[Rfam]
RNA sequence: UUCGACGUGAUGAACAAGACAAUUUUAUUAUACAGUUAUCCCUGUCUUAAUCUCCAUGUGUGGAUAUGGUUCUAAUUUCUGAUCUCGAU
Number, nucleotide and partner (000 for none) at each position: 001u000002u088003c087004g086005a085006c000007g083008u000009g000010a000011u000012g000013a000014a000015c000016a000017a000018g000019a000020c000021a000022a000023u000024u000025u000026u000027a000028u000029u000030a000031u000032a000033c000034a000035g000036u000037u000038a000039u000040c000041c000042c000043u000044g000045u000046c000047u000048u000049a000050a000051u000052c000053u000054c000055c000056a000057u000058g000059u000060g000061u000062g000063g000064a000065u000066a000067u000068g000069g000070u000071u000072c000073u000074a000075a000076u000077u000078u000079c000080u000081g000082a000083u007084c000085u005086c004087g003088a002089u000

Shown here is an 89-nucleotide sequence from Colletotrichum tanaceti, a member of the family "Small nucleolar RNA R38". The literature on the family includes a 2003 paper in Nucleic Acids Res by Chen et al., "The high diversity of snoRNAs in plants: identification and comparative study of 120 snoRNA genes from Oryza sativa". From the family's description: snoR38 is a C/D box small nucleolar RNA conserved across yeast, human, Arabidopsis and rice.